RNA sequence: CAACCACUGGUUCAUCCCGAGAUGUGUCCGGACGAUAACGGUACACAGAGCCACUGAUGCCAGCGAUUCGGUAAGCUCUACGGGUGCUGACACCAUGUGCUUGCUUGAGGUAAUCAACCAGCUCUCGUCGAACGGCUGAAUUU
Numbered sequence: 001c002a003a004c005c006a007c008u009g010g011u012u013c014a015u016c017c018c019g020a021g022a023u024g025u026g027u028c029c030g031g032a033c034g035a036u037a038a039c040g041g042u043a044c045a046c047a048g049a050g051c052c053a054c055u056g057a058u059g060c061c062a063g064c065g066a067u068u069c070g071g072u073a074a075g076c077u078c079u080a081c082g083g084g085u086g087c088u089g090a091c092a093c094c095a096u097g098u099g100c101u102u103g104c105u106u107g108a109g110g111u112a113a114u115c116a117a118c119c120a121g122c123u124c125u126c127g128u129c130g131a132a133c134g135g136c137u138g139a140a141u142u143u
Base pairs, nucleotide, nucleotide: 025112026111027110028109031106048078050076051075053072054071060065081103082101083100116141120137121136122135

Overview:
A member of the RNA family "isrN Hfq binding RNA" from Vreelandella nanhaiensis, 143 nucleotides long. Rfam 15.1 lists 141 matches to the family in 98 species. The base pairs follow the family's consensus structure, which was predicted with WAR. For this family Rfam cites "Small RNAs encoded within genetic islands of Salmonella typhimurium show host-induced expression and role in virulence" (Padalon-Brauch et al., Nucleic Acids Res, 2008).